The family of this 83-nucleotide RNA sequence from Elaeis guineensis is "MIR473 microRNA precursor family".
It scores 57 bits against the family's covariance model.
Rfam 15.1 lists 189 matches to the family in 90 species.
Its family is annotated with miRNA-mediated post-transcriptional gene silencing and RISC complex in the Gene Ontology.

[Rfam]
RNA sequence: AGCACUCACUCUCCCUCAAGGGCUUCUCCCCUCACAUGCUUGUUAGUGUAGGUCAGAAGCCCUUGGGGUAGAGUGAAGGAGAG
Numbered sequence: 001a002g003c004a005c006u007c008a009c010u011c012u013c014c015c016u017c018a019a020g021g022g023c024u025u026c027u028c029c030c031c032u033c034a035c036a037u038g039c040u041u042g043u044u045a046g047u048g049u050a051g052g053u054c055a056g057a058a059g060c061c062c063u064u065g066g067g068g069u070a071g072a073g074u075g076a077a078g079g080a081g082a083g
Stems, first nucleotide, its partner, number of pairs: 006076007014068002017065010